mir-448 microRNA precursor family: a 112-nucleotide RNA from Mus musculus. Rfam 15.1 lists 125 matches to the family in 125 species. The source organism's lineage runs through Eukaryota, Bilateria, Teleostomi, Dipnotetrapodomorpha and Mus. Its family is annotated with miRNA-mediated post-transcriptional gene silencing, negative regulation of fat cell differentiation and RISC complex in the Gene Ontology.

RNA sequence: ACGAGGAGGUUGAACAUCCUGCAUAGUGCUGCCAGGAAAUCCCUACUUCAUACUAAGAGGGGGCUGGCUGGUUGCAUAUGUAGGAUGUCCCAUCUCCUGGCCCACUUCGUCA
Numbered sequence: 001a002c003g004a005g006g007a008g009g010u011u012g013a014a015c016a017u018c019c020u021g022c023a024u025a026g027u028g029c030u031g032c033c034a035g036g037a038a039a040u041c042c043c044u045a046c047u048u049c050a051u052a053c054u055a056a057g058a059g060g061g062g063g064c065u066g067g068c069u070g071g072u073u074g075c076a077u078a079u080g081u082a083g084g085a086u087g088u089c090c091c092a093u094c095u096c097c098u099g100g101c102c103c104a105c106u107u108c109g110u111c112a
Stems, first nucleotide, its partner, number of pairs: 004098007012090001014088012027076003031072005040062005046057003